Rfam assigns this 121-nucleotide RNA from Castor canadensis to the family "Small nucleolar RNA SNORA32".
About the family: ACA32 is a member of the H/ACA class of snoRNA that guide the sites of modification of uridines to pseudouridines.
The base pairs follow the family's consensus structure, which was predicted with RNAfold.
Rfam links the family to the GO terms nucleolus and RNA processing.
[Rfam]
RNA sequence: UAGCCAUGACCAAGGCUUUUAGAAUGCAGUUUCUCAUUUGCUGUGGACAUGACCAUAAAAAAUUUUCCCAGUAGGCUUUCUAUAUGCUACUUUGUUAGCAGUCAACCUACUGGGAACACUG
Numbered sequence: 001u002a003g004c005c006a007u008g009a010c011c012a013a014g015g016c017u018u019u020u021a022g023a024a025u026g027c028a029g030u031u032u033c034u035c036a037u038u039u040g041c042u043g044u045g046g047a048c049a050u051g052a053c054c055a056u057a058a059a060a061a062a063u064u065u066u067c068c069c070a071g072u073a074g075g076c077u078u079u080c081u082a083u084a085u086g087c088u089a090c091u092u093u094g095u096u097a098g099c100a101g102u103c104a105a106c107c108u109a110c111u112g113g114g115a116a117c118a119c120u121g
Stems, first nucleotide, its partner, number of pairs: 003053001005051003010046003026041004067114004074107002077104001085100003